[Rfam]
RNA sequence: ACAAGUUCCGAAAAACAGCCGGUCUACCGAGCAAUUUCAGUCGCUCGGUGGAAGACCUUCCCUUUUUCAU
Numbered sequence: 001a002c003a004a005g006u007u008c009c010g011a012a013a014a015a016c017a018g019c020c021g022g023u024c025u026a027c028c029g030a031g032c033a034a035u036u037u038c039a040g041u042c043g044c045u046c047g048g049u050g051g052a053a054g055a056c057c058u059u060c061c062c063u064u065u066u067u068c069a070u
Base pairs, nucleotide, nucleotide: 004067005066010061012059018056020054023052024051025050026049027048028047029046030045031044032043
RNA: mir-2774 microRNA precursor family